Source information:
Rfam assigns this 112-nucleotide RNA from a Solirubrobacterales bacterium to the family "TPP riboswitch aptamer (THI element)". The source organism's lineage runs through Bacteria, Bacillati, Actinomycetota, Thermoleophilia and Solirubrobacterales. Pairs were carried over by alignment from the consensus structure, which is taken from published work. Vitamin B(1) in its active form thiamin pyrophosphate (TPP) is an essential coenzyme that is synthesised by coupling of pyrimidine and thiazole moieties in bacteria.
Nucleotides: 112
Base pairs, nucleotide, nucleotide: 006100007099008098010096011062012061013060014059017034018033019032020031021030041056042055043054044053045052067092068091069090070089073086074085075084076083
Number, partner (000 for none) and nucleotide at each position: 001000u002000c003000a004000c005000a006100u007099g008098c009000a010096c011062g012061c013060g014059g015000g016000u017034g018033c019032u020031c021030g022000g023000c024000a025000u026000g027000a028000a029000c030021c031020g032019g033018g034017c035000u036000g037000a038000g039000a040000g041056g042055a043054c044053g045052c046000u047000u048000c049000u050000u051000g052045g053044c054043g055042u056041c057000g058000a059014c060013c061012g062011c063000u064000g065000a066000a067092c068091c069090u070089g071000a072000u073086c074085c075084g076083g077000g078000u079000a080000a081000u082000g083076c084075c085074g086073g087000c088000g089070c090069a091068g092067g093000g094000a095000g096010g097000g098008g099007u100006a101000g102000a103000c104000a105000u106000g107000a108000g109000c110000g111000a112000c